Shown here is a 214-nucleotide sequence from Arthrobacter sp. FB24, a member of the family "c-di-AMP riboswitch aptamer (ydaO/yuaA leader)".
Rfam's curators write: This family represents a conserved RNA structure found upstream of the ydaO and yuaA genes in Bacillus subtilis and related genes in other bacteria. The ydaO/yuaA element is thought to act as a genetic 'off' switch for the ydaO and yuaA genes in its native state. It is believed that the element may be triggered during osmotic shock leading to activation of ydaO, a predicted amino acid transporter gene, and members of the yuaA-yubG operon which code for KtrA and KtrB K+ transporters.
The source organism's lineage runs through Bacteria, Bacillati, Actinomycetota, Micrococcales and Arthrobacter.
[Rfam]
RNA sequence: UCACGGUACGAAUCACCUCCUGGCAGAGGCGGGGGAACCACAACCGGCCGUUGCAAGACGGCCUUGGGGUGAAGUCCGUCAGCGGCAAAGCACCUCCGACGAAGGAUUCCUUUGGGAUACCCCUGUGUCGGAUGCCUUGCAUUGGCGGACCGGGUCUUUGAUCUCUCUGACCCGAAUCCGACAGCUAACUCCGCAGGCUUCCCAGAGAGGAUAA
Numbered sequence: 001u002c003a004c005g006g007u008a009c010g011a012a013u014c015a016c017c018u019c020c021u022g023g024c025a026g027a028g029g030c031g032g033g034g035g036a037a038c039c040a041c042a043a044c045c046g047g048c049c050g051u052u053g054c055a056a057g058a059c060g061g062c063c064u065u066g067g068g069g070u071g072a073a074g075u076c077c078g079u080c081a082g083c084g085g086c087a088a089a090g091c092a093c094c095u096c097c098g099a100c101g102a103a104g105g106a107u108u109c110c111u112u113u114g115g116g117a118u119a120c121c122c123c124u125g126u127g128u129c130g131g132a133u134g135c136c137u138u139g140c141a142u143u144g145g146c147g148g149a150c151c152g153g154g155u156c157u158u159u160g161a162u163c164u165c166u167c168u169g170a171c172c173c174g175a176a177u178c179c180g181a182c183a184g185c186u187a188a189c190u191c192c193g194c195a196g197g198c199u200u201c202c203c204a205g206a207g208a209g210g211a212u213a214a
Stems, first nucleotide, its partner, number of pairs: 011199001013197002017028003029194006039066002067179003075149008152173004